[Rfam]
RNA: MIR8565 microRNA precursor family
RNA sequence: UCCACACUCAUGUGUAUAGGACCCCAAAGGAUCACAAUUAAAUUUGGUACAGAUCUCUAGAAAAGUUAUCACAUAGGUAUGAGACUUGACUUUUCCAAAGAUCUGUACCAAAUUUAAUAGUGAUCUUUUGACGUCCUAUACACAUGGGUGUGUG
Numbered sequence: 001u002c003c004a005c006a007c008u009c010a011u012g013u014g015u016a017u018a019g020g021a022c023c024c025c026a027a028a029g030g031a032u033c034a035c036a037a038u039u040a041a042a043u044u045u046g047g048u049a050c051a052g053a054u055c056u057c058u059a060g061a062a063a064a065g066u067u068a069u070c071a072c073a074u075a076g077g078u079a080u081g082a083g084a085c086u087u088g089a090c091u092u093u094u095c096c097a098a099a100g101a102u103c104u105g106u107a108c109c110a111a112a113u114u115u116a117a118u119a120g121u122g123a124u125c126u127u128u129u130g131a132c133g134u135c136c137u138a139u140a141c142a143c144a145u146g147g148g149u150g151u152g153u154g
Stems, first nucleotide, its partner, number of pairs: 003152011015140008025130004030125003034121002037118020058097001060095009069082003073078001